Annotation: Selenocysteine insertion sequence 1: a 65-nucleotide RNA sequence from Stegastes partitus. The family's RNA type in Rfam is cis-regulatory element. A search with the family's covariance model found it, with a score of 36 bits. The incorporation of selenocysteine into a protein sequence is directed by an in-frame UGA codon (usually a stop codon) within the coding region of the mRNA. Selenoprotein mRNAs contain a conserved secondary structure in the 3' UTR that is required for the distinction of UGA stop from UGA selenocysteine. Pairs were carried over by alignment from the consensus structure, which is taken from published work.

RNA sequence: GACACUUUGGUGAAGACCUCACAGUAAACCAGUGCUGGGAUGUGAGGUCUGAUGUGAAACGUGGU
Numbered sequence: 001g002a003c004a005c006u007u008u009g010g011u012g013a014a015g016a017c018c019u020c021a022c023a024g025u026a027a028a029c030c031a032g033u034g035c036u037g038g039g040a041u042g043u044g045a046g047g048u049c050u051g052a053u054g055u056g057a058a059a060c061g062u063g064g065u
Stems, first nucleotide, its partner, number of pairs: 001065001003063003015049009030037002